[Rfam]
RNA sequence: CCUAACGUGGUUCAUCUACCAUCCCACGUAAAAAAACUAGGGGGAA
Numbered sequence: 001c002c003u004a005a006c007g008u009g010g011u012u013c014a015u016c017u018a019c020c021a022u023c024c025c026a027c028g029u030a031a032a033a034a035a036a037c038u039a040g041g042g043g044g045a046a
Base pairs, nucleotide, nucleotide: 006028007027008026009025010024015039